[Rfam]
RNA sequence: GAUUUAUAAAGAUGGGCGGAGAGAAUAGGCUCUAUGAAACCCGGGCAACCAAACGAGCUCUCGUAAAGGUGCCAAUACCUACCUGCCAGUGUGCAGGAAUGAUAAACC
Numbered sequence: 001g002a003u004u005u006a007u008a009a010a011g012a013u014g015g016g017c018g019g020a021g022a023g024a025a026u027a028g029g030c031u032c033u034a035u036g037a038a039a040c041c042c043g044g045g046c047a048a049c050c051a052a053a054c055g056a057g058c059u060c061u062c063g064u065a066a067a068g069g070u071g072c073c074a075a076u077a078c079c080u081a082c083c084u085g086c087c088a089g090u091g092u093g094c095a096g097g098a099a100u101g102a103u104a105a106a107c108c
Stems, first nucleotide, its partner, number of pairs: 001108001003106005013043004021032003026081004044073004049069002053064003077100001082097005
Dot-bracket structure: (.(((((.....((((....(((..[[[[))).......))))((((.((..(((......)))...))))))...(]]]](((((......)))))..).))))).)